[Rfam]
RNA sequence: CCUGCACCGUAGCAGCACGUAAAUAUUGGAGUGUGAACUCUGCGAUUCCAGUAUUUCGUGCUGCUGCUGUGCGGU
Numbered sequence: 001c002c003u004g005c006a007c008c009g010u011a012g013c014a015g016c017a018c019g020u021a022a023a024u025a026u027u028g029g030a031g032u033g034u035g036a037a038c039u040c041u042g043c044g045a046u047u048c049c050a051g052u053a054u055u056u057c058g059u060g061c062u063g064c065u066g067c068u069g070u071g072c073g074g075u
Base pairs, nucleotide, nucleotide: 002074009067010066011065012064013063014062015061016060017059018058019057022055023054024053025052026051027050028049029048030047
RNA: mir-15 microRNA precursor family
Organism: Petromyzon marinus